[Rfam]
RNA sequence: UGAGCUGGUCGAAAGACCAGGGUCCACACAUUGGCGGGUAAGACACUC
Numbered sequence: 001u002g003a004g005c006u007g008g009u010c011g012a013a014a015g016a017c018c019a020g021g022g023u024c025c026a027c028a029c030a031u032u033g034g035c036g037g038g039u040a041a042g043a044c045a046c047u048c
Base pairs, nucleotide, nucleotide: 001026002025004023005022006021007018008017009016010015
A member of the RNA family "DUF3800-XI RNA", 48 nucleotides long.
It is annotated as a small RNA.
The sequence is in the family's curated seed alignment.
Rfam describes the family as follows. Actinobacteria, Firmicutes, Proteobacteria, Spirochaetes (1 example).
The family's consensus secondary structure is taken from published work.